[Rfam]
The record is a 129-nucleotide RNA from Photinus pyralis, which matches "Small Cajal body specific RNA 8" in Rfam. The base pairs follow the family's consensus structure, which is taken from published work. scaRNAs are a specific class of small nuclear RNAs which localise to the Cajal bodies and guide the modification of RNA polymerase II transcribed spliceosomal RNAs U1, U2, U4, U5 and U12. It is annotated as a small Cajal body RNA.

RNA sequence: UGGGAGUCGCAUACGUAUGCAAAUGUAAAAGACUGUUUGUAUAUCACUUAUCUCCCAAUAUUAUUAUGGUUUUCUGAUGACCGCAGGUAGUUAAGUUACAAACUGUGGACAGAUACGAAGCCUACAGCA
Numbered sequence: 001u002g003g004g005a006g007u008c009g010c011a012u013a014c015g016u017a018u019g020c021a022a023a024u025g026u027a028a029a030a031g032a033c034u035g036u037u038u039g040u041a042u043a044u045c046a047c048u049u050a051u052c053u054c055c056c057a058a059u060a061u062u063a064u065u066a067u068g069g070u071u072u073u074c075u076g077a078u079g080a081c082c083g084c085a086g087g088u089a090g091u092u093a094a095g096u097u098a099c100a101a102a103c104u105g106u107g108g109a110c111a112g113a114u115a116c117g118a119a120g121c122c123u124a125c126a127g128c129a
Stems, first nucleotide, its partner, number of pairs: 002056005015044004022037004068122006081108003086103001088102001